[Rfam]
RNA sequence: CGACUCUUACCUGCCUGUUCAGGGCCUUCGGCAAGACCCAUGAAUAAUUUUUGGAAACCCCGCACCAUGCUGGGGUU
Dot-bracket structure: .....................(((.(((....))).))).................(((((((.....).)))))).
Rfam assigns this 77-nucleotide RNA sequence from Angiostrongylus costaricensis to the family "SmY spliceosomal RNA". The base pairs follow the family's consensus structure, which is taken from published work. It scores 41 bits against the family's covariance model. Rfam classes the family as a spliceosomal small nuclear RNA.